Annotation: mir-9242 microRNA precursor family: a 64-nucleotide RNA sequence from Myotis myotis. NCBI's taxonomy places the organism under Eukaryota, Metazoa, Euteleostomi, Boreoeutheria, Myotis. Its family is annotated with miRNA-mediated post-transcriptional gene silencing and RISC complex in the Gene Ontology. The base pairs follow the family's consensus structure, which was predicted with RNAalifold.

[Rfam]
RNA sequence: GGCCACCCUCUGCAGGGUGAUCGAUCAGGGGGUUCCGUGAUCGAUUGCCUCACAGAGGGAGGCC
Numbered sequence: 001g002g003c004c005a006c007c008c009u010c011u012g013c014a015g016g017g018u019g020a021u022c023g024a025u026c027a028g029g030g031g032g033u034u035c036c037g038u039g040a041u042c043g044a045u046u047g048c049c050u051c052a053c054a055g056a057g058g059g060a061g062g063c064c
Stems, first nucleotide, its partner, number of pairs: 001064004006059007015050013029036002